[Rfam]
RNA sequence: GGCCCGUCGCAGGGAGAGCGUGAACAUGAAUUCCGUUCACCGCCGAAGGCGCAAUCCCGUAACCGCUCAGGCCAACGAACCGGCGACGCAGG
Numbered sequence: 001g002g003c004c005c006g007u008c009g010c011a012g013g014g015a016g017a018g019c020g021u022g023a024a025c026a027u028g029a030a031u032u033c034c035g036u037u038c039a040c041c042g043c044c045g046a047a048g049g050c051g052c053a054a055u056c057c058c059g060u061a062a063c064c065g066c067u068c069a070g071g072c073c074a075a076c077g078a079a080c081c082g083g084c085g086a087c088g089c090a091g092g
Stems, first nucleotide, its partner, number of pairs: 006087005012081002020040006042072003045068002049066003